[Rfam]
RNA sequence: GUCGACUUUCGGGGGCGGGUGGAAUUCCCGCACCGGCGGUGAGCCCGACGGGGGCCGUUCCCCCGCUGGAGAGUCCGCGAACCCCAGCCCGAGGGCCGGGGCCGAGCCGGUGAGAUUCCGGCACCGACGGUAAAAGUCCGGAUGGGAGAAAGGAAAC
Numbered sequence: 001g002u003c004g005a006c007u008u009u010c011g012g013g014g015g016c017g018g019g020u021g022g023a024a025u026u027c028c029c030g031c032a033c034c035g036g037c038g039g040u041g042a043g044c045c046c047g048a049c050g051g052g053g054g055c056c057g058u059u060c061c062c063c064c065g066c067u068g069g070a071g072a073g074u075c076c077g078c079g080a081a082c083c084c085c086a087g088c089c090c091g092a093g094g095g096c097c098g099g100g101g102c103c104g105a106g107c108c109g110g111u112g113a114g115a116u117u118c119c120g121g122c123a124c125c126g127a128c129g130g131u132a133a134a135a136g137u138c139c140g141g142a143u144g145g146g147a148g149a150a151a152g153g154a155a156a157c
Stems, first nucleotide, its partner, number of pairs: 006152005017029003032137002034126002036078004073124002082101002106122005128140003

The record is a 157-nucleotide RNA from Rubrobacter radiotolerans, which matches "FMN riboswitch aptamer (RFN element)" in Rfam.
It scores 82 bits against the family's covariance model.